[Rfam]
Nucleotides: 566
Base pairs, nucleotide, nucleotide: 003494004493005492006491009487010454016452017451018450020449021448022447025059026058030057031056032055037051038050066407067406068405076328077327078326081323082322085321086320091316092315093314094313107142108141109140110139116132119129120128121127149216150215151214152213153212157208221273222272223271224270225269226268234261236259237258242251243250244249283309284308285307286306289304290303291302330378331377332376337369338368339367344366345365346364347363348362349361350360351359382404383403384402385401386397387396388395389394409430410429412427413426414425432443434441435440460485462484463483464482468480469479470478471477500530501529502528504525505524507522508521509520510519511518512517537557538556539554541553
Number, partner (000 for none) and nucleotide at each position: 001000u002000g003494u004493c005492u006491u007000a008000a009487g010454g011000a012000u013000u014000a015000a016452g017451c018450c019000a020449u021448g022447c023000a024000u025059g026058u027000c028000u029000c030057a031056g032055u033000a034000u035000a036000a037051a038050c039000g040000a041000u042000u043000u044000u045000a046000u047000a048000c049000g050038g051037u052000g053000a054000a055032a056031c057030u058026g059025c060000g061000a062000a063000u064000g065000g066407c067406u068405c069000a070000u071000u072000a073000c074000a075000a076328c077327a078326g079000u080000u081323a082322u083000a084000g085321u086320u087000u088000a089000u090000u091316u092315g093314a094313u095000c096000g097000u098000g099000c100000g101000g102000u103000a104000c105000u106000a107142c108141g109140u110139g111000g112000a113000u114000a115000a116132c117000c118000g119129u120128a121127g122000g123000a124000a125000u126000u127121c128120u129119a130000g131000a132116g133000c134000u135000a136000a137000u138000a139110c140109a141108u142107g143000c144000c145000c146000c147000a148000u149216c150215g151214c152213u153212u154000u155000c156000g157208a158000a159000g160000u161000u162000u163000u164000u165000u166000a167000a168000u169000u170000u171000u172000u173000u174000u175000u176000c177000u178000u179000u180000u181000u182000u183000a184000a185000a186000a187000g188000g189000a190000a191000a192000a193000a194000a195000a196000a197000a198000a199000a200000g201000a202000a203000a204000a205000a206000a207000u208157u209000a210000g211000a212153a213152a214151g215150u216149g217000g218000g219000a220000u221273u222272u223271a224270u225269u226268a227000g228000a229000u230000c231000a232000a233000a234261a235000a236259c237258c238000a239000a240000u241000c242251g243250c244249u245000u246000u247000a248000g249244a250243g251242c252000g253000u254000g255000g256000c257000g258237g259236g260000a261234u262000g263000a264000a265000u266000c267000a268226u269225a270224a271223u272222a273221a274000c275000u276000u277000u278000c279000c280000g281000a282000a283309u284308c285307g286306c287000a288000a289304g290303g291302c292000u293000a294000u295000a296000a297000a298000u299000u300000g301000a302291g303290c304289c305000g306286g307285c308284g309283a310000u311000a312000u313094a314093u315092c316091a317000u318000u319000c320086a321085a322082a323081u324000u325000u326078c327077u328076g329000c330378c331377c332376u333000a334000u335000c336000a337369a338368c339367u340000u341000u342000c343000g344366a345365u346364g347363g348362u349361a350360g351359g352000g353000u354000a355000g356000u357000g358000g359351c360350c361349u362348a363347c364346c365345a366344u367339g368338g369337u370000g371000u372000u373000g374000a375000c376332g377331g378330g379000u380000g381000a382404c383403g384402g385401a386397g387396a388395a389394u390000u391000a392000g393000g394389g395388u396387u397386c398000g399000a400000u401385u402384c403383c404382g405068g406067a407066g408000a409430g410429g411000g412427a413426g414425c415000c416000u417000g418000a419000g420000a421000a422000a423000c424000g425414g426413c427412u428000a429410c430409c431000a432443c433000a434441u435440c436000c437000a438000a439000g440435g441434a442000a443432g444000g445000c446000a447022g448021c449020a450018g451017g452016c453000g454010c455000g456000c457000a458000a459000a460485u461000u462484a463483c464482c465000c466000a467000a468480u469479c470478c471477u472000g473000a474000c475000u476000a477471a478470g479469g480468g481000a482464g483463g484462u485460a486000g487009c488000g489000a490000c491006a492005a493004g494003a495000a496000a497000u498000a499000a500530c501529g502528a503000u504525a505524a506000a507522a508521g509520g510519c511518c512517u513000u514000u515000u516000c517512a518511g519510g520509u521508c522507u523000g524505u525504u526000u527000a528502u529501u530500g531000g532000a533000a534000u535000g536000a537557g538556g539554a540000u541553a542000a543000u544000u545000u546000a547000c548000a549000c550000c551000c552000c553541u554539u555000c556538u557537c558000g559000a560000g561000u562000a563000u564000c565000c566000a